RNA sequence: GGGAAUAGAUAAGUCCUGGUGGGCUUACCGGUCUUCAAAACCGAGUUGUGGUGCUAAUACCAUCAUGGGUAGGUUCAAUUCCUACAUAUUCCC
Dot-bracket structure: ((((((((..((((((....))))))..((((.......))))...(((((...........)))))..((((.......))))).)))))))

The record is a 93-nucleotide RNA sequence from Clostridium thermobutyricum, which matches "Selenocysteine transfer RNA" in Rfam. Lineage of the source: Bacteria > Bacillati > Bacillota > Clostridia > Clostridium.